[Rfam]
RNA sequence: GACAAAGCUCAAAAUCAAUACGUUAUACGUAUUGUAUUUUGUAGCCCUCUAGCUUCGCUAGCUCGAUUCCGACACCAAUCCAGGUGCGUUGUGCUGGACAGUGCCUGCCCGGUUUAGUGACUUACAGAUUUGAUCACGCCUAACCACAGUUCAUUGUGGAGUUUCGGCUGUUGAUUGUCUGUUUGUUGCAACGGGGUCUUACUGUGUUCUUUGAGGACUACCUAGGUAACACCACAUUCAGUGGUGGUUUUCCCUAGGCUCCUUAUUAGGGCACCAGACA
Numbered sequence: 001g002a003c004a005a006a007g008c009u010c011a012a013a014a015u016c017a018a019u020a021c022g023u024u025a026u027a028c029g030u031a032u033u034g035u036a037u038u039u040u041g042u043a044g045c046c047c048u049c050u051a052g053c054u055u056c057g058c059u060a061g062c063u064c065g066a067u068u069c070c071g072a073c074a075c076c077a078a079u080c081c082a083g084g085u086g087c088g089u090u091g092u093g094c095u096g097g098a099c100a101g102u103g104c105c106u107g108c109c110c111g112g113u114u115u116a117g118u119g120a121c122u123u124a125c126a127g128a129u130u131u132g133a134u135c136a137c138g139c140c141u142a143a144c145c146a147c148a149g150u151u152c153a154u155u156g157u158g159g160a161g162u163u164u165c166g167g168c169u170g171u172u173g174a175u176u177g178u179c180u181g182u183u184u185g186u187u188g189c190a191a192c193g194g195g196g197u198c199u200u201a202c203u204g205u206g207u208u209c210u211u212u213g214a215g216g217a218c219u220a221c222c223u224a225g226g227u228a229a230c231a232c233c234a235c236a237u238u239c240a241g242u243g244g245u246g247g248u249u250u251u252c253c254c255u256a257g258g259c260u261c262c263u264u265a266u267u268a269g270g271g272c273a274c275c276a277g278a279c280a
Stems, first nucleotide, its partner, number of pairs: 007045003010041006016034007049061005070088002073086004117189005127179003144159006